[Rfam]
RNA sequence: UUUUUAUACAGAGGCGCUGAGAGACAGGCUCAAUGAAGCGCCGGCAACCAUCCGCAACCGCGGGCAAGGUGCCAAUUCCUGACCAUAUAAAAA
Numbered sequence: 001u002u003u004u005u006a007u008a009c010a011g012a013g014g015c016g017c018u019g020a021g022a023g024a025c026a027g028g029c030u031c032a033a034u035g036a037a038g039c040g041c042c043g044g045c046a047a048c049c050a051u052c053c054g055c056a057a058c059c060g061c062g063g064g065c066a067a068g069g070u071g072c073c074a075a076u077u078c079c080u081g082a083c084c085a086u087a088u089a090a091a092a093a
Stems, first nucleotide, its partner, number of pairs: 001093008013042005021031003025081004043073004048069002051064003077085001
Shown here is a 93-nucleotide RNA from Hymenobacter sedentarius, a member of the family "SAM riboswitch aptamer (S box leader)".
It scores 75 bits against the family's covariance model.
The family's consensus secondary structure is taken from published work.
Rfam describes the family as follows. The SAM riboswitch is found upstream of a number of genes which code for proteins involved in methionine or cysteine biosynthesis in Gram-positive bacteria.